[Rfam]
RNA sequence: AGCCCUUGGAAACCAAGUGUGGGUGUGGCCUGAAAGCAAAACACGGCGACCCAUCCUUAGUUUCUGAGGUUU
Numbered sequence: 001a002g003c004c005c006u007u008g009g010a011a012a013c014c015a016a017g018u019g020u021g022g023g024u025g026u027g028g029c030c031u032g033a034a035a036g037c038a039a040a041a042c043a044c045g046g047c048g049a050c051c052c053a054u055c056c057u058u059a060g061u062u063u064c065u066g067a068g069g070u071u072u
Stems, first nucleotide, its partner, number of pairs: 002071001004069004009064005016057002021052004028047003
RNA: mir-551 microRNA precursor family